RNA sequence: CCGAUGAGUAGAAGCUGUCAGGGGGCCAAACCCCAGGUCAUUGCUCAGUUC
Numbered sequence: 001c002c003g004a005u006g007a008g009u010a011g012a013a014g015c016u017g018u019c020a021g022g023g024g025g026c027c028a029a030a031c032c033c034c035a036g037g038u039c040a041u042u043g044c045u046c047a048g049u050u051c
Stems, first nucleotide, its partner, number of pairs: 005047006015036001019037001021034004